[Rfam]
RNA sequence: GAACGUUUCGUUCCGUACGCGGGAAUAAAGGUCGGUUGCGCGAAACCGUCUUUGAAAACCGCCCCGCGGGACGACUCCGGCAAGGAUUGCCGGUGUAAGC
Numbered sequence: 001g002a003a004c005g006u007u008u009c010g011u012u013c014c015g016u017a018c019g020c021g022g023g024a025a026u027a028a029a030g031g032u033c034g035g036u037u038g039c040g041c042g043a044a045a046c047c048g049u050c051u052u053u054g055a056a057a058a059c060c061g062c063c064c065c066g067c068g069g070g071a072c073g074a075c076u077c078c079g080g081c082a083a084g085g086a087u088u089g090c091c092g093g094u095g096u097a098a099g100c
Stems, first nucleotide, its partner, number of pairs: 009073008019062004028053004033048005074096002077093005